[Rfam]
RNA sequence: AUUUUUGUUUUCUAGGGUUCCGCGAUAAAAUUAUCGGACUGGUCCAAGAGAAAACACACAGCCUAGCUGUGACACGGAGGGACAAAAGCCCGGGAGAU
Number, nucleotide and partner (000 for none) at each position: 001a000002u000003u000004u000005u000006u000007g055008u054009u053010u052011u051012c050013u000014a000015g045016g044017g000018u000019u000020c042021c041022g039023c036024g035025a034026u033027a032028a000029a000030a000031u000032u027033a026034u025035c024036g023037g000038a000039c022040u000041g021042g020043u000044c016045c015046a000047a000048g000049a000050g012051a011052a010053a009054a008055c007056a000057c071058a070059c069060a068061g067062c066063c000064u000065a000066g062067c061068u060069g059070u058071g057072a000073c093074a000075c096076g000077g000078a000079g091080g090081g089082a000083c000084a000085a000086a000087a000088g000089c081090c080091c079092g000093g073094g000095a000096g075097a000098u000
The family of this 98-nucleotide RNA from Desulforamulus ruminis is "Guanidine-I riboswitch aptamer". This family represents a conserved RNA structure found upstream of the ykkC and yxkD genes in Bacillus subtilis and related genes in other bacteria.